RNA sequence: GAGUUUGGUGGCUAGGGUUCCGGCCGGGUGAUUGCCCGGUGUCUGGUCCGAGAGCUGCCGUCCCGCCGGGAGACAUCCGGGGGGGAUGCACGGCGGGAUAAAAGCCCGGGAGGC
Numbered sequence: 001g002a003g004u005u006u007g008g009u010g011g012c013u014a015g016g017g018u019u020c021c022g023g024c025c026g027g028g029u030g031a032u033u034g035c036c037c038g039g040u041g042u043c044u045g046g047u048c049c050g051a052g053a054g055c056u057g058c059c060g061u062c063c064c065g066c067c068g069g070g071a072g073a074c075a076u077c078c079g080g081g082g083g084g085g086a087u088g089c090a091c092g093g094c095g096g097g098a099u100a101a102a103a104g105c106c107c108g109g110g111a112g113g114c
Base pairs, nucleotide, nucleotide: 007059008058009057010056011055012054015049016048020046021045022043023040024039025038026037027036028035060087061086062085063084064083066081067080089109091112095107096106097105
RNA: Guanidine-I riboswitch aptamer